Rfam assigns this 172-nucleotide sequence from Peptoclostridium litorale to the family "Lysine riboswitch aptamer". Taxonomically the source falls in Peptoclostridium litorale (Bacteria, Peptostreptococcales, Peptoclostridiaceae, Peptoclostridium). The base pairs follow the family's consensus structure, which is taken from published work. Riboswitches are metabolite binding domains within certain messenger RNAs that serve as precision sensors for their corresponding targets.

[Rfam]
RNA sequence: AAUAAUAAUAGAGGAGCAGCAUUUAAGAGUACCUCAGCAGAGUAAAGCACAAUGAAGCUUUGGAAAAGGAAAUGUUGCCGAAAUAUAUGGCUGACGCUUUAAGGCCAUAUGUUGGGCCUGCAUAGAAUAUGUGCAGGACUGUCACAGGUUAUUGUGGAGGGCUAUUAUUCGA
Numbered sequence: 001a002a003u004a005a006u007a008a009u010a011g012a013g014g015a016g017c018a019g020c021a022u023u024u025a026a027g028a029g030u031a032c033c034u035c036a037g038c039a040g041a042g043u044a045a046a047g048c049a050c051a052a053u054g055a056a057g058c059u060u061u062g063g064a065a066a067a068g069g070a071a072a073u074g075u076u077g078c079c080g081a082a083a084u085a086u087a088u089g090g091c092u093g094a095c096g097c098u099u100u101a102a103g104g105c106c107a108u109a110u111g112u113u114g115g116g117c118c119u120g121c122a123u124a125g126a127a128u129a130u131g132u133g134c135a136g137g138a139c140u141g142u143c144a145c146a147g148g149u150u151a152u153u154g155u156g157g158a159g160g161g162c163u164a165u166u167a168u169u170c171g172a
Stems, first nucleotide, its partner, number of pairs: 006167006016078009032063002036059003082113011114140002117137008142157006